The record is a 73-nucleotide RNA from Caenorhabditis elegans, which matches "lsy-6 microRNA precursor family" in Rfam. The sequence is in the family's curated seed alignment.

RNA sequence: CCAUCAAAUGCGUCUAGUAUCAAAAUCAUGUAAAAACUGUAAAACAGAUUUUGUAUGAGACGCAUUUCGAUGA
Numbered sequence: 001c002c003a004u005c006a007a008a009u010g011c012g013u014c015u016a017g018u019a020u021c022a023a024a025a026u027c028a029u030g031u032a033a034a035a036a037c038u039g040u041a042a043a044a045c046a047g048a049u050u051u052u053g054u055a056u057g058a059g060a061c062g063c064a065u066u067u068c069g070a071u072g073a
Stems, first nucleotide, its partner, number of pairs: 001072001004069001006067009017056003021053007029046003